This 174-nucleotide RNA from Clostridium acetobutylicum belongs to the Rfam family "M-box riboswitch aptamer (ykoK leader)".
RNA sequence: AAAAGUUUUAGUUAGGUGAGGCUCCUAUAUAGAUAUACGCUACUGCCCAGAAACAUCGAGAGAUGCCAAAUUGGGUCAGCAGAUAUUACCGAAUCAAGGUUCUAUCUAAUGUAGCUGGAUUUAUAGUUUUAAUCUAAGCUAUAUAGUGCUAAAGCUCUACUGUCUAAUUUCGUA
Numbered sequence: 001a002a003a004a005g006u007u008u009u010a011g012u013u014a015g016g017u018g019a020g021g022c023u024c025c026u027a028u029a030u031a032g033a034u035a036u037a038c039g040c041u042a043c044u045g046c047c048c049a050g051a052a053a054c055a056u057c058g059a060g061a062g063a064u065g066c067c068a069a070a071u072u073g074g075g076u077c078a079g080c081a082g083a084u085a086u087u088a089c090c091g092a093a094u095c096a097a098g099g100u101u102c103u104a105u106c107u108a109a110u111g112u113a114g115c116u117g118g119a120u121u122u123a124u125a126g127u128u129u130u131a132a133u134c135u136a137a138g139c140u141a142u143a144u145a146g147u148g149c150u151a152a153a154g155c156u157c158u159a160c161u162g163u164c165u166a167a168u169u170u171c172g173u174a
Stems, first nucleotide, its partner, number of pairs: 005170001008167003011160002013097001015156003020150003025146008039115005045076005054065004082106004088100003118134003
For this family Rfam cites "Insights into metalloregulation by M-box riboswitch RNAs via structural analysis of manganese-bound complexes" (Ramesh et al., J Mol Biol, 2011). M-box riboswitch, also know as ykoK leader is described as a metaloregulatory RNA that sense divalent metals and function as a genetic control element of genes related to divalent metal transport in bacteria.